[Rfam]
RNA sequence: ACAGUACAAACUGAGCAGGCGAUGAACCUUUGUGUAAAGAAGGUCAUGGGGCCGGGCCGUGAGUAGCGGCAGCAGAUUGCAAGUAUGCACAUCUGUGGGACAGUA
Number, nucleotide and partner (000 for none) at each position: 001a000002c000003a000004g000005u000006a000007c000008a000009a000010a104011c103012u102013g101014a000015g000016c099017a000018g053019g052020c051021g000022a047023u046024g045025a044026a000027c042028c000029u000030u000031u000032g000033u000034g000035u000036a000037a000038a000039g000040a000041a000042g027043g000044u025045c024046a023047u022048g000049g000050g000051g020052c019053c018054g000055g000056g070057c069058c068059g067060u066061g000062a000063g000064u000065a000066g060067c059068g058069g057070c056071a000072g096073c095074a094075g093076a092077u091078u000079g000080c000081a000082a000083g000084u000085a000086u000087g000088c000089a000090c000091a077092u076093c075094u074095g073096u072097g000098g000099g016100a000101c013102a012103g011104u010105a000
Description: The record is a 105-nucleotide RNA from Hathewaya proteolytica, which matches "NiCo (Nickel/Cobalt) riboswitch aptamer" in Rfam. The family's consensus secondary structure is taken from published work. A search with the family's covariance model found it, with a score of 79 bits. Rfam links the family to the GO terms metal ion homeostasis and cobalt ion binding. On this family, see Furukawa et al., Mol Cell 2015: "Bacterial riboswitches cooperatively bind Ni(2+) or Co(2+) ions and control expression of heavy metal transporters". Clan: NiCo_riboswitches.